[Rfam]
RNA sequence: CGCCCUUUUAAACGGUAGUCCCGUGAGGCUGCAAAAGGGGGAAACACUGCGUGAAGCGAAUGAUUCGUCAUGUUGCUUCAUGCUGUGGAAACCUCUUUGCGCACUUGUGUAAAGAGGUUUUUUUA
Numbered sequence: 001c002g003c004c005c006u007u008u009u010a011a012a013c014g015g016u017a018g019u020c021c022c023g024u025g026a027g028g029c030u031g032c033a034a035a036a037g038g039g040g041g042a043a044a045c046a047c048u049g050c051g052u053g054a055a056g057c058g059a060a061u062g063a064u065u066c067g068u069c070a071u072g073u074u075g076c077u078u079c080a081u082g083c084u085g086u087g088g089a090a091a092c093c094u095c096u097u098u099g100c101g102c103a104c105u106u107g108u109g110u111a112a113a114g115a116g117g118u119u120u121u122u123u124u125a
Base pairs, nucleotide, nucleotide: 003039004038005037006036007035008034009033015032016031017030018029019028020027046086047085049083050082051081052080053079054078055077056076057075058074059073089120090119091118092117093116094115095114096113097112098111099110100109101108102107
RNA: PyrR binding site
Organism: Priestia veravalensis